[Rfam]
RNA sequence: UUUUUAUUGAAUCAUGACUGUCACGUGUCAUAUUCUAAUUGGUCAAUGAAAAUAACAAUGUAUUUCAUCUUUUAUGGAGUUGACAUCUAAUCAGAACAUGACACGUGACCGUCAUUAUCC
Numbered sequence: 001u002u003u004u005u006a007u008u009g010a011a012u013c014a015u016g017a018c019u020g021u022c023a024c025g026u027g028u029c030a031u032a033u034u035c036u037a038a039u040u041g042g043u044c045a046a047u048g049a050a051a052a053u054a055a056c057a058a059u060g061u062a063u064u065u066c067a068u069c070u071u072u073u074a075u076g077g078a079g080u081u082g083a084c085a086u087c088u089a090a091u092c093a094g095a096a097c098a099u100g101a102c103a104c105g106u107g108a109c110c111g112u113c114a115u116u117a118u119c120c
Base pairs, nucleotide, nucleotide: 020109021108022107023106025104026103029100030099031098033096034095035094036093038091039090040089041088042087
The family of this 120-nucleotide RNA sequence from Glycine max is "MIR1520 microRNA precursor family". Rfam 15.1 lists 1,934 matches to the family in 15 species. Rfam links the family to the GO terms RISC complex and miRNA-mediated post-transcriptional gene silencing.